[Rfam]
RNA sequence: UUUUAAAUAUUGCCGAAUCCUGCAUGAACAGGAGCGGGGGACCCGGUUUUUUGGGGCGUAUCUCCUUUUGAAGGAGUAGAGCAAACUCUUCGGCUCGAGCCCGUCAGCUAACCUCGCAGGUGUCGAAGGGUAGAGCU
Numbered sequence: 001u002u003u004u005a006a007a008u009a010u011u012g013c014c015g016a017a018u019c020c021u022g023c024a025u026g027a028a029c030a031g032g033a034g035c036g037g038g039g040g041a042c043c044c045g046g047u048u049u050u051u052u053g054g055g056g057c058g059u060a061u062c063u064c065c066u067u068u069u070g071a072a073g074g075a076g077u078a079g080a081g082c083a084a085a086c087u088c089u090u091c092g093g094c095u096c097g098a099g100c101c102c103g104u105c106a107g108c109u110a111a112c113c114u115c116g117c118a119g120g121u122g123u124c125g126a127a128g129g130g131u132a133g134a135g136c137u
Stems, first nucleotide, its partner, number of pairs: 011122004018033005034117006044053002054102003062076004079096004
RNA: c-di-AMP riboswitch aptamer (ydaO/yuaA leader)
Organism: Desulforhabdus amnigena